Rfam assigns this 103-nucleotide RNA from Chiloscyllium punctatum to the family "mir-454 microRNA precursor family". A reference for the family is Chen et al. (2005), "The developmental miRNA profiles of zebrafish as determined by small RNA cloning", Genes Dev. The base pairs follow the family's consensus structure, which was predicted with RNAalifold.
[Rfam]
RNA sequence: UCUAUUUCCCCUGGAGGCCACAACCCUAUCAAUGUUGCCUCUGCUGUUCAGAUAUCCACACAGUAGUGCAAUGUUGCUUAUAGGGUUCUGGACAGCAGGAGAA
Numbered sequence: 001u002c003u004a005u006u007u008c009c010c011c012u013g014g015a016g017g018c019c020a021c022a023a024c025c026c027u028a029u030c031a032a033u034g035u036u037g038c039c040u041c042u043g044c045u046g047u048u049c050a051g052a053u054a055u056c057c058a059c060a061c062a063g064u065a066g067u068g069c070a071a072u073g074u075u076g077c078u079u080a081u082a083g084g085g086u087u088c089u090g091g092a093c094a095g096c097a098g099g100a101g102a103a
Stems, first nucleotide, its partner, number of pairs: 020089001022087008030076009041066005